[Rfam]
Nucleotides: 027
Stems, first nucleotide, its partner, number of pairs: 001020006012027003
Number, partner (000 for none) and nucleotide at each position: 001020g002019g003018g004017g005016g006015g007000a008000c009000u010000u011000a012027g013026c014025g015006c016005c017004c018003c019002c020001c021000a022000a023000a024000c025014c026013g027012u